[Rfam]
Rfam assigns this 127-nucleotide RNA to the family "Small nucleolar RNA SNORA65".
Its Rfam clan is "SNORA65 clan".
It is one of the family's seed sequences.
About the family: U65 belongs to the H/ACA class of snoRNAs which are thought to guide the sites of modification of uridines to pseudouridines.
Its family is annotated with RNA processing and nucleolus in the Gene Ontology.
Rfam classes the family as an H/ACA-box small nucleolar RNA.
RNA sequence: CCCGCCACUGUGCUAGUCUUUUAAAGUGACUCUGUACAAUCCAGUGGAGGCUCAGAGUGACCCAGCUCUAGGAAGCAGGGCGGCCCAAACUGAUGGGCAGCUCUGUGCCGAAAGACCUGGAACAAAC
Numbered sequence: 001c002c003c004g005c006c007a008c009u010g011u012g013c014u015a016g017u018c019u020u021u022u023a024a025a026g027u028g029a030c031u032c033u034g035u036a037c038a039a040u041c042c043a044g045u046g047g048a049g050g051c052u053c054a055g056a057g058u059g060a061c062c063c064a065g066c067u068c069u070a071g072g073a074a075g076c077a078g079g080g081c082g083g084c085c086c087a088a089a090c091u092g093a094u095g096g097g098c099a100g101c102u103c104u105g106u107g108c109c110g111a112a113a114g115a116c117c118u119g120g121a122a123c124a125a126a127c
Stems, first nucleotide, its partner, number of pairs: 005047006018034001022029001062120004066114001067112001071109002076105006084097003
The family's consensus secondary structure was predicted with RNAalifold.